[Rfam]
RNA sequence: AAGAUUACAAGGGGAGAGUUUACAACGAAUAGUAACGCCGAAGGAGCAAGUGAAGAGCGAAUCUCUCAGGCCAAAAAGACUCUUGUAUGACG
Numbered sequence: 001a002a003g004a005u006u007a008c009a010a011g012g013g014g015a016g017a018g019u020u021u022a023c024a025a026c027g028a029a030u031a032g033u034a035a036c037g038c039c040g041a042a043g044g045a046g047c048a049a050g051u052g053a054a055g056a057g058c059g060a061a062u063c064u065c066u067c068a069g070g071c072c073a074a075a076a077a078g079a080c081u082c083u084u085g086u087a088u089g090a091c092g
Stems, first nucleotide, its partner, number of pairs: 006087008020035004037071003040067002044065003050058002